[Rfam]
RNA sequence: GGAUAGCAUUGUUUUGCUAUCCCAGGCCAAUAACACAAUGACACGUGGAAAAGUUAUCCUACAUGUCACUGCGUUAUUAGUCGGGGAUAGCAAAAAGUGUUAUACCC
Numbered sequence: 001g002g003a004u005a006g007c008a009u010u011g012u013u014u015u016g017c018u019a020u021c022c023c024a025g026g027c028c029a030a031u032a033a034c035a036c037a038a039u040g041a042c043a044c045g046u047g048g049a050a051a052a053g054u055u056a057u058c059c060u061a062c063a064u065g066u067c068a069c070u071g072c073g074u075u076a077u078u079a080g081u082c083g084g085g086g087a088u089a090g091c092a093a094a095a096a097g098u099g100u101u102a103u104a105c106c107c
Base pairs, nucleotide, nucleotide: 002106004104005103012095013094014093015092016091017090018089019088020087022085023084025082026081027080029078030077031076032075033074034073036071037070039068040067041066042065043064045062046061047060048059050057
RNA: MIR6274 microRNA precursor family